The record is a 102-nucleotide RNA from Clostridium bornimense, which matches "azaaromatic riboswitch aptamer (yjdF RNA)" in Rfam. The base pairs follow the family's consensus structure, which is taken from published work.
RNA sequence: UAAAGUAGAGAUAAAAACACAGUUCUGUUGGUAGUCAGAACCUAUAAUAGAUUUAUAGCAGUAACCUGCCCUCCUGGGUUGUCCAUUCUCUUGAAGUUUUUA
Numbered sequence: 001u002a003a004a005g006u007a008g009a010g011a012u013a014a015a016a017a018c019a020c021a022g023u024u025c026u027g028u029u030g031g032u033a034g035u036c037a038g039a040a041c042c043u044a045u046a047a048u049a050g051a052u053u054u055a056u057a058g059c060a061g062u063a064a065c066c067u068g069c070c071c072u073c074c075u076g077g078g079u080u081g082u083c084c085a086u087u088c089u090c091u092u093g094a095a096g097u098u099u100u101u102a
Stems, first nucleotide, its partner, number of pairs: 007091005022041006042058006068079004